[Rfam]
RNA sequence: CUGGCUCCGGUUCACGUGCGUCCACUCCGGACGGGCGACCCGGCACC
Numbered sequence: 001c002u003g004g005c006u007c008c009g010g011u012u013c014a015c016g017u018g019c020g021u022c023c024a025c026u027c028c029g030g031a032c033g034g035g036c037g038a039c040c041c042g043g044c045a046c047c
Stems, first nucleotide, its partner, number of pairs: 003047002007043004015037003019033005
Dot-bracket structure: ..((..((((....(((.(((((.....))))).)))..))))..))